Source information
Plant signal recognition particle RNA: a 307-nucleotide RNA sequence from Digitaria exilis. By type it is a non-coding RNA gene. Pairs were carried over by alignment from the consensus structure, which is taken from published work. Rfam links the family to the GO terms SRP-dependent cotranslational protein targeting to membrane, signal sequence recognition and signal recognition particle, endoplasmic reticulum targeting. Lineage of the source: Eukaryota > Tracheophyta > Magnoliopsida > Poales > Digitaria. A search with the family's covariance model found it, with a score of 224 bits.
[Rfam]
Nucleotides: 307
Stems, first nucleotide, its partner, number of pairs: 001040003004023007028037003045305008054297001057294002059291002062287006070280006077273002080266002084262004089258001091257003095254001101251007109240002112238005118231004123227001125225003129168003133164001135162007143154004169174001176221005185214001187212003194205003
Number, partner (000 for none) and nucleotide at each position: 001040g002039c003038c004023g005022a006021g007020c008019u009018c010017a011000g012000u013000g014000g015000c016000g017010u018009g019008g020007g021006c022005u023004u024000g025000u026000c027000a028037c029036c030035c031000a032000a033000g034000u035030g036029g037028g038003g039002g040001c041000a042000u043000c044000a045305g046304g047303g048302u049301g050300g051299u052298g053000a054297g055000g056000a057294u058293g059291u060290u061000u062287g063286g064285u065284g066283g067282g068000c069000c070280c071279u072278c073277u074276g075275g076000u077273c078272c079000u080266g081265g082000a083000a084262c085261u086260g087259u088000g089258g090000u091257g092256u093255g094000c095254c096000u097000u098000u099000g100000c101251u102250g103249g104248c105247c106246u107245g108000c109240c110239c111000a112238u113237u114236c115235c116234a117000a118231g119230u120229u121228g122000u123227g124000u125225a126224g127223u128000g129168g130167u131166c132000g133164g134000a135162a136161g137160g138159g139158g140157c141156u142000u143154u144153g145152g146151c147000g148000a149000a150000g151146g152145c153144c154143a155000u156141g157140g158139u159138c160137u161136c162135u163000c164133c165000g166131g167130g168129c169174c170000u171000g172000a173000u174169g175000u176221g177220g178219c179218a180217g181000g182000a183000a184000u185214g186000g187212c188211g189210u190000g191000a192000g193000g194205c195204u196203g197000g198000u199000g200000u201000c202000a203196c204195a205194g206000a207000g208000c209000a210189g211188c212187g213000a214185u215000c216000a217180c218179u219178g220177c221176c222000c223127g224126c225125u226000u227123c228121c229120a230119a231118c232000g233000g234116u235115g236114g237113g238112a239110g240109g241000u242000u243000a244000a245107c246106a247105g248104g249103c250102c251101g252000c253000u254095g255093c256092a257091c258089c259087a260086u261085g262084g263000a264000c265081c266080u267000g268000c269000u270000c271000u272078g273077g274000c275075c276074c277073a278072g279071a280070g281000u282067c283066c284065c285064a286063c287062u288000a289000c290060a291059a292000a293058c294057a295000g296000a297054c298052c299051a300050c301049c302048a303047u304046c305045u306000g307000u